[Rfam]
About this RNA:
The record is a 35-nucleotide RNA sequence from Leptolyngbya sp. 'hensonii', which matches "CRISPR RNA direct repeat element" in Rfam. Rfam links the family to the GO term defense response. A search with the family's covariance model found it, with a score of 40 bits. Taxonomically the source falls in Leptolyngbya (Bacteria, Bacillati, Cyanophyceae, Leptolyngbyaceae).
Nucleotides: 035
Base pairs, nucleotide, nucleotide: 005026006025008021009020010019011018012017
Number, partner (000 for none) and nucleotide at each position: 001000g002000u003000u004000u005026c006025c007000g008021u009020c010019c011018c012017c013000u014000u015000g016000c017012g018011g019010g020009g021008a022000a023000u024000g025006g026005g027000u028000a029000a030000u031000g032000a033000a034000a035000c